[Rfam]
RNA sequence: CCUCCGUCCUCCCCGCACAGGAGGACGGACCGAGGAGCCGGCGCUCUCUGCCCUGACUGCGGCGGGUCCUCACAUGGCCGGACGGGACCGCACACCCGACGGCUGUUGCAACUCCGGGCUGCGGUGCCGGGAGGGCUGAGGGUCCCUCCCAGGCGC
Numbered sequence: 001c002c003u004c005c006g007u008c009c010u011c012c013c014c015g016c017a018c019a020g021g022a023g024g025a026c027g028g029a030c031c032g033a034g035g036a037g038c039c040g041g042c043g044c045u046c047u048c049u050g051c052c053c054u055g056a057c058u059g060c061g062g063c064g065g066g067u068c069c070u071c072a073c074a075u076g077g078c079c080g081g082a083c084g085g086g087a088c089c090g091c092a093c094a095c096c097c098g099a100c101g102g103c104u105g106u107u108g109c110a111a112c113u114c115c116g117g118g119c120u121g122c123g124g125u126g127c128c129g130g131g132a133g134g135g136c137u138g139a140g141g142g143u144c145c146c147u148c149c150c151a152g153g154c155g156c
Stems, first nucleotide, its partner, number of pairs: 003029004008024005032071005038065003043060002045056002074106007084097003111125003115121002129150007
Rfam assigns this 156-nucleotide RNA to the family "Streptomyces sRNA scr5239". It scores 148 bits against the family's covariance model. The family's RNA type in Rfam is small RNA. On this family, see Vockenhuber et al., PLoS One 2015: "Identification of metE as a second target of the sRNA scr5239 in Streptomyces coelicolor". Pairs were carried over by alignment from the consensus structure, which is taken from published work.